[Rfam]
RNA sequence: GUAUAAUGAUGAUAUCCAUGCGUGUCAGCUGACUCUGGGAAACCCUGCUGUGGUGCUGCUCAUGUUAGCGUUCUGCUGACUGAGUUUUCACAACAGCAUGGACCCAGAGGUGUGAUCAUACAUUCAUGGUUCUGAGCAC
Numbered sequence: 001g002u003a004u005a006a007u008g009a010u011g012a013u014a015u016c017c018a019u020g021c022g023u024g025u026c027a028g029c030u031g032a033c034u035c036u037g038g039g040a041a042a043c044c045c046u047g048c049u050g051u052g053g054u055g056c057u058g059c060u061c062a063u064g065u066u067a068g069c070g071u072u073c074u075g076c077u078g079a080c081u082g083a084g085u086u087u088u089c090a091c092a093a094c095a096g097c098a099u100g101g102a103c104c105c106a107g108a109g110g111u112g113u114g115a116u117c118a119u120a121c122a123u124u125c126a127u128g129g130u131u132c133u134g135a136g137c138a139c
Stems, first nucleotide, its partner, number of pairs: 001139002004136001043101002046098006
The family of this 139-nucleotide RNA from Austrofundulus limnaeus is "Small nucleolar RNA SNORD10".
A search with the family's covariance model found it, with a score of 78 bits.
By type it is a C/D-box small nucleolar RNA.
Pairs were carried over by alignment from the consensus structure, which was predicted with WAR.
A reference for the family is Huttenhofer et al. (2001), "RNomics: an experimental approach that identifies 201 candidates for novel, small, non-messenger RNAs in mouse", EMBO J.
Lineage of the source: Eukaryota > Eumetazoa > Teleostei > Eurypterygia > Austrofundulus.